Rfam assigns this 62-nucleotide RNA to the family "cow-rumen-1 RNA". The base pairs follow the family's consensus structure, which is taken from published work.

[Rfam]
RNA sequence: CCACUGGUCACCGCGUAUAAGUUUGACGGUUAUAAAAUCCAGCACCGGAUAUAACGAAGAGG
Numbered sequence: 001c002c003a004c005u006g007g008u009c010a011c012c013g014c015g016u017a018u019a020a021g022u023u024u025g026a027c028g029g030u031u032a033u034a035a036a037a038u039c040c041a042g043c044a045c046c047g048g049a050u051a052u053a054a055c056g057a058a059g060a061g062g
Stems, first nucleotide, its partner, number of pairs: 004042004010030004015022002